[Rfam]
The family of this 68-nucleotide sequence from Acipenser ruthenus is "MAT2A 3'UTR stem loop A". A reference for the family is Parker et al. (2011), "New families of human regulatory RNA structures identified by comparative analysis of vertebrate genomes", Genome Res. The source organism's lineage runs through Eukaryota, Bilateria, Euteleostomi, Acipenserini and Acipenser. Rfam classes the family as a cis-regulatory element.
RNA sequence: GCUUUUUUCCCCCAGGCCUGUUGGUGUAUACUACAGAGAAGCCUGUCAGGCCUUUAGGGGGAAGAGGC
Numbered sequence: 001g002c003u004u005u006u007u008u009c010c011c012c013c014a015g016g017c018c019u020g021u022u023g024g025u026g027u028a029u030a031c032u033a034c035a036g037a038g039a040a041g042c043c044u045g046u047c048a049g050g051c052c053u054u055u056a057g058g059g060g061g062a063a064g065a066g067g068c
Stems, first nucleotide, its partner, number of pairs: 001068004008060004014054003019048002023043003026034002